[Rfam]
RNA: c-di-GMP-I-GGC riboswitch aptamer
RNA sequence: CUCGAAAAAGCCAGAACUUUUGCGAGAAAGUGACGGAAAGCCGCGGGUCUUCCGGGAGGAAGAUGGCCGAGCUGCCGAAG
Numbered sequence: 001c002u003c004g005a006a007a008a009a010g011c012c013a014g015a016a017c018u019u020u021u022g023c024g025a026g027a028a029a030g031u032g033a034c035g036g037a038a039a040g041c042c043g044c045g046g047g048u049c050u051u052c053c054g055g056g057a058g059g060a061a062g063a064u065g066g067c068c069g070a071g072c073u074g075c076c077g078a079a080g
Stems, first nucleotide, its partner, number of pairs: 001080001003077002011036002016031006034066001039073003044069003047064005